Notes:
This 103-nucleotide RNA sequence from Rhodanobacter sp. MP7CTX1 belongs to the Rfam family "Fluoride riboswitch aptamer (crcB RNA motif)". Rfam links the family to the GO terms positive regulation of gene expression and response to fluoride.

RNA sequence: AGCCACACGGGAGAUGGCAUGCCUCCCGUUUCGCGAACGCCCCUGGCGAUCCGAAACAAACCACCUCUCGCCUGGCGUUGAGGUUGAUGAUGCCUGCACCACC
Numbered sequence: 001a002g003c004c005a006c007a008c009g010g011g012a013g014a015u016g017g018c019a020u021g022c023c024u025c026c027c028g029u030u031u032c033g034c035g036a037a038c039g040c041c042c043c044u045g046g047c048g049a050u051c052c053g054a055a056a057c058a059a060a061c062c063a064c065c066u067c068u069c070g071c072c073u074g075g076c077g078u079u080g081a082g083g084u085u086g087a088u089g090a091u092g093c094c095u096g097c098a099c100c101a102c103c
Base pairs, nucleotide, nucleotide: 010026011025012024013023016094017093018092019091020090063084064083065082066081